RNA sequence: AUCGCAAGCUUGAGGCCAUAGCAGAAGUGCACAUGACAUGGCCCUGUCAGAUUCUAAUGACUCUGUGAAUCUUGAU
Numbered sequence: 001a002u003c004g005c006a007a008g009c010u011u012g013a014g015g016c017c018a019u020a021g022c023a024g025a026a027g028u029g030c031a032c033a034u035g036a037c038a039u040g041g042c043c044c045u046g047u048c049a050g051a052u053u054c055u056a057a058u059g060a061c062u063c064u065g066u067g068a069a070u071c072u073u074g075a076u
Base pairs, nucleotide, nucleotide: 012044014043015042016041017040020076022074023073024072026070027039028038029037048065049064050063051062053060054059
Dot-bracket structure: ...........(.((((..[.[[[.[(((.......))))))))...((((.((....)).))))....].]]].]
Mammalian CPEB3 ribozyme: a 76-nucleotide RNA from Alligator sinensis.
Pairs were carried over by alignment from the consensus structure, which is taken from published work.
A search with the family's covariance model found it, with a score of 46 bits.